Overview: Shown here is a 131-nucleotide RNA from Megaselia scalaris, a member of the family "Small nucleolar RNA SNORA79". Its family is annotated with nucleolus and RNA processing in the Gene Ontology. For this family Rfam cites "A computational screen for mammalian pseudouridylation guide H/ACA RNAs" (Schattner et al., RNA, 2006). ACA65 (SNORA79) is a member of the H/ACA class of snoRNAs that guide the sites of modification of uridines to pseudouridines. This snoRNA was identified by computational screening and its expression in mouse experimentally verified by Northern blot and primer extension analysis.
[Rfam]
RNA sequence: CGAAAUUUGUUCCUUUCAAAACGUUGAAUUUCAGUUUUGGAAUUUUAAAAUUUCGAAAAUCGAAUUAAGCUAAACUUCACACGCGAAUGUUUCAAGUCUUACAUUCAGCGUUUAUGCAUUUAGCUACAUUU
Numbered sequence: 001c002g003a004a005a006u007u008u009g010u011u012c013c014u015u016u017c018a019a020a021a022c023g024u025u026g027a028a029u030u031u032c033a034g035u036u037u038u039g040g041a042a043u044u045u046u047a048a049a050a051u052u053u054c055g056a057a058a059a060u061c062g063a064a065u066u067a068a069g070c071u072a073a074a075c076u077u078c079a080c081a082c083g084c085g086a087a088u089g090u091u092u093c094a095a096g097u098c099u100u101a102c103a104u105u106c107a108g109c110g111u112u113u114a115u116g117c118a119u120u121u122a123g124c125u126a127c128a129u130u131u
Base pairs, nucleotide, nucleotide: 001055002054003053004052005051006050007049008048014042015041016040017039018038020036021035022034068125069124070123071122072121073120081111082110083109084108085106086105087104088103089102
Dot-bracket structure: ((((((((.....(((((.(((...........))).))))).....))))))))............((((((.......(((((((((............))))).))))........))))))......